[Rfam]
RNA: mir-19 microRNA precursor family
RNA sequence: UUUUAUGGUUAGUUUUGCUGGUUUGCCUUCAGCUUUUACCUCGUUGCUGUGCAAAUCCAUGCAAAACUGAUCAUGACA
Numbered sequence: 001u002u003u004u005a006u007g008g009u010u011a012g013u014u015u016u017g018c019u020g021g022u023u024u025g026c027c028u029u030c031a032g033c034u035u036u037u038a039c040c041u042c043g044u045u046g047c048u049g050u051g052c053a054a055a056u057c058c059a060u061g062c063a064a065a066a067c068u069g070a071u072c073a074u075g076a077c078a
Stems, first nucleotide, its partner, number of pairs: 003076016020058002022055005028049001031048003